[Rfam]
RNA sequence: GUUGGAAUGUAGUGUGUGCCUGUAGUCCCAGCUGCUGGGAAGGCUGGGCCUGGUGGAUCUCUGGAGCCUGGGAGUUCUGGGCUGCAGGGCACUGUGCCCAGCGGGCAUCCAAGCUAUGGCUGCCACCAGUAUGGUGACCUGAGGGGACACCGGGACACCAGGCUGACUAAGGAGGGGCCAACCGGCCCAGUUCAGAGACGGAGCAGGUCAGAGCUCCCAUCCUGGUCAGGAGUGGGGUCGUGCCCAGGAACGGGCCCUGCAGUAAAGCGUGGGCAACACGUGGGCUCCCUUUCCAA
Numbered sequence: 001g002u003u004g005g006a007a008u009g010u011a012g013u014g015u016g017u018g019c020c021u022g023u024a025g026u027c028c029c030a031g032c033u034g035c036u037g038g039g040a041a042g043g044c045u046g047g048g049c050c051u052g053g054u055g056g057a058u059c060u061c062u063g064g065a066g067c068c069u070g071g072g073a074g075u076u077c078u079g080g081g082c083u084g085c086a087g088g089g090c091a092c093u094g095u096g097c098c099c100a101g102c103g104g105g106c107a108u109c110c111a112a113g114c115u116a117u118g119g120c121u122g123c124c125a126c127c128a129g130u131a132u133g134g135u136g137a138c139c140u141g142a143g144g145g146g147a148c149a150c151c152g153g154g155a156c157a158c159c160a161g162g163c164u165g166a167c168u169a170a171g172g173a174g175g176g177g178c179c180a181a182c183c184g185g186c187c188c189a190g191u192u193c194a195g196a197g198a199c200g201g202a203g204c205a206g207g208u209c210a211g212a213g214c215u216c217c218c219a220u221c222c223u224g225g226u227c228a229g230g231a232g233u234g235g236g237g238u239c240g241u242g243c244c245c246a247g248g249a250a251c252g253g254g255c256c257c258u259g260c261a262g263u264a265a266a267g268c269g270u271g272g273g274c275a276a277c278a279c280g281u282g283g284g285c286u287c288c289c290u291u292u293c294c295a296a
Stems, first nucleotide, its partner, number of pairs: 001044003004021002006017001026040003046294003052288002055285001058284003062280002066274005072268001077267002081263009092253004097248001103245006109236002113233003117228006125220001127165004132160005138154004144148001167171001174217005184209004192201002
The record is a 296-nucleotide RNA sequence from Smithornis capensis, which matches "Metazoan signal recognition particle RNA" in Rfam.
Gene Ontology terms of the family: signal recognition particle, endoplasmic reticulum targeting and SRP-dependent cotranslational protein targeting to membrane, signal sequence recognition.
Its Rfam clan is "SRP clan".